[Rfam]
RNA sequence: GGCACAAACGUGAAGUGGAGUAGAUUAGUAGGAUCAGCUGACCAUACUAAUCUACUCUACUUCAAAUUUGGACCC
Number, nucleotide and partner (000 for none) at each position: 001g074002g073003c000004a000005c070006a069007a068008a067009c000010g000011u064012g063013a062014a061015g060016u059017g058018g057019a056020g055021u054022a053023g052024a000025u050026u049027a048028g047029u046030a045031g000032g043033a000034u041035c040036a000037g000038c000039u000040g035041a034042c000043c032044a000045u030046a029047c028048u027049a026050a025051u000052c023053u022054a021055c020056u019057c018058u017059a016060c015061u014062u013063c012064a011065a000066a000067u008068u007069u006070g005071g000072a000073c002074c001075c000

The family of this 75-nucleotide sequence from Haemonchus placei is "mir-5928 microRNA precursor family". Lineage of the source: Eukaryota > Bilateria > Protostomia > Chromadorea > Haemonchus. The family's consensus secondary structure was predicted with RNAalifold.